[Rfam]
RNA sequence: GCGGGUGUGGCGGAAUUGGCAGACGCACUAGACUUAGGAUCUAGCGCCUUCGGGCAUGGGGGUUCGACUCCCUUCACCCGCA
Number, nucleotide and partner (000 for none) at each position: 001g081002c080003g079004g078005g077006u076007g075008u000009g000010g026011c025012g024013g000014a000015a000016u000017u000018g000019g000020c000021a000022g000023a000024c012025g011026c010027a000028c044029u043030a042031g041032a040033c000034u000035u000036a000037g000038g000039a000040u032041c031042u030043a029044g028045c000046g000047c000048c000049u000050u000051c000052g000053g000054g000055c000056a000057u000058g074059g073060g072061g071062g070063u000064u000065c000066g000067a000068c000069u000070c062071c061072c060073u059074u058075c007076a006077c005078c004079c003080g002081c001082a000

Overview
tRNA: an 82-nucleotide sequence from Phocicoccus pinnipedialis. A search with the family's covariance model found it, with a score of 56 bits. Taxonomically the source falls in Phocicoccus (Bacteria, Bacillati, Bacillota, Salinicoccaceae).